A member of the RNA family "Group II catalytic intron D1-D4-3", 173 nucleotides long. The base pairs follow the family's consensus structure. Group II introns are found in rRNA, tRNA and mRNA of organelles in fungi, plants and protists, and also in mRNA in bacteria. It scores 100 bits against the family's covariance model.
RNA sequence: CAAGGGGUGAUCCUUGGGAGAGAAGAAGCAACAGCGAAGUCGUGGCCUGACGAAUAGAAACCUAAUACAAAGGCGUAUCAAGCGGACAAGCUGGCAAAAGGACAGUGAAGUCCCAAAAGGCAACCGUAACCUUGAUGCGCAAUUUAGGCAGGUAAGCGAUGAAAGAUGUAUGA
Numbered sequence: 001c002a003a004g005g006g007g008u009g010a011u012c013c014u015u016g017g018g019a020g021a022g023a024a025g026a027a028g029c030a031a032c033a034g035c036g037a038a039g040u041c042g043u044g045g046c047c048u049g050a051c052g053a054a055u056a057g058a059a060a061c062c063u064a065a066u067a068c069a070a071a072g073g074c075g076u077a078u079c080a081a082g083c084g085g086a087c088a089a090g091c092u093g094g095c096a097a098a099a100g101g102a103c104a105g106u107g108a109a110g111u112c113c114c115a116a117a118a119g120g121c122a123a124c125c126g127u128a129a130c131c132u133u134g135a136u137g138c139g140c141a142a143u144u145u146a147g148g149c150a151g152g153u154a155a156g157c158g159a160u161g162a163a164a165g166a167u168g169u170a171u172g173a
Stems, first nucleotide, its partner, number of pairs: 001016006029172002035165001039160005045153005061148005073140003077136006084113004090106004